Streptococcus sRNA SpF59 (ldcC RNA): a 55-nucleotide RNA. By type it is a small RNA.
RNA sequence: CGACCGCCGCUCUCUCAGCGGCUAAGGCCACACGGACAGCCGGGUCGAAUGCCGA
Numbered sequence: 001c002g003a004c005c006g007c008c009g010c011u012c013u014c015u016c017a018g019c020g021g022c023u024a025a026g027g028c029c030a031c032a033c034g035g036a037c038a039g040c041c042g043g044g045u046c047g048a049a050u051g052c053c054g055a
Stems, first nucleotide, its partner, number of pairs: 001047005006022006